[Rfam]
RNA sequence: CCAGCCUUAGGGAAGGAUGCCAAUCCAGCCUUAGGGAAAGAAACCUGCCACAGGAGUCUUGGAGAUUGGCGACUGUCCUAAUGACUUA
Number, nucleotide and partner (000 for none) at each position: 001c000002c000003a086004g085005c000006c083007u000008u081009a000010g079011g078012g077013a076014a000015g074016g073017a000018u071019g070020c069021c068022a067023a066024u065025c064026c000027a000028g000029c062030c061031u000032u000033a000034g000035g000036g000037a000038a060039a059040g058041a057042a000043a000044c054045c053046u052047g051048c000049c000050a000051c047052a046053g045054g044055a000056g000057u041058c040059u039060u038061g030062g029063a000064g025065a024066u023067u022068g021069g020070c019071g018072a000073c016074u015075g000076u013077c012078c011079u010080a000081a008082u000083g006084a000085c004086u003087u000088a000
A member of the RNA family "mir-9014 microRNA precursor family" from Equus caballus, 88 nucleotides long. The source organism's lineage runs through Eukaryota, Opisthokonta, Sarcopterygii, Eutheria and Equus. A search with the family's covariance model found it, with a score of 95 bits.